[Rfam]
RNA sequence: ACGCGUGCUCCGGGGUCGGUGAAAGUCCGAACCGGCGGUGACAGUCCGCGACCCGACCGACAUGCUCGGCCGGUGGAACCGGUGGAAUUCCGGUGCCGACGGUGAAAGUCCGGAUGGGAGGAAGUACGCGU
Numbered sequence: 001a002c003g004c005g006u007g008c009u010c011c012g013g014g015g016u017c018g019g020u021g022a023a024a025g026u027c028c029g030a031a032c033c034g035g036c037g038g039u040g041a042c043a044g045u046c047c048g049c050g051a052c053c054c055g056a057c058c059g060a061c062a063u064g065c066u067c068g069g070c071c072g073g074u075g076g077a078a079c080c081g082g083u084g085g086a087a088u089u090c091c092g093g094u095g096c097c098g099a100c101g102g103u104g105a106a107a108g109u110c111c112g113g114a115u116g117g118g119a120g121g122a123a124g125u126a127c128g129c130g131u
Stems, first nucleotide, its partner, number of pairs: 003129007010120001017029003031109002033098002035049004044096002053073002078094005100112003

This 131-nucleotide RNA sequence from Haloactinospora alba belongs to the Rfam family "FMN riboswitch aptamer (RFN element)". Its family is annotated with FMN binding in the Gene Ontology. NCBI's taxonomy places the organism under Bacteria, Bacillati, Actinomycetes, Streptosporangiales, Haloactinospora.